[Rfam]
RNA: miR-430 microRNA precursor family
Nucleotides: 070
Stems, first nucleotide, its partner, number of pairs: 004066002008062004013057005018051005025044003
Number, partner (000 for none) and nucleotide at each position: 001000a002000c003000c004066a005065u006000u007000u008062c009061c010060c011059c012000a013057a014056c015055u016054g017053a018051a019050g020049c021048a022047c023000a024000a025044a026043c027042u028000u029000g030000c031000g032000c033000u034000g035000u036000g037000a038000g039000a040000g041000c042027a043026g044025u045000a046000a047022g048021u049020g050019c051018u052000a053017u054016u055015a056014g057013u058000u059011g060010g061009g062008g063000u064000c065005g066004u067000g068000u069000u070000g